[Rfam]
RNA sequence: CCCGCUCAUGUGCUGACACCUCAACGUGGUGAGCGGGUGACAACGUCUACGGACGGCUAAGAGCAGCACAA
Number, nucleotide and partner (000 for none) at each position: 001c037002c036003c035004g034005c033006u032007c031008a000009u000010g000011u000012g000013c000014u000015g000016a000017c000018a030019c029020c028021u000022c000023a000024a000025c000026g000027u000028g020029g019030u018031g007032a006033g005034c004035g003036g002037g001038u000039g000040a000041c000042a000043a000044c055045g054046u053047c052048u000049a000050c000051g000052g047053a046054c045055g044056g000057c000058u000059a000060a000061g000062a000063g000064c000065a000066g000067c000068a000069c000070a000071a000
RNA: HDV ribozyme from F. prausnitzii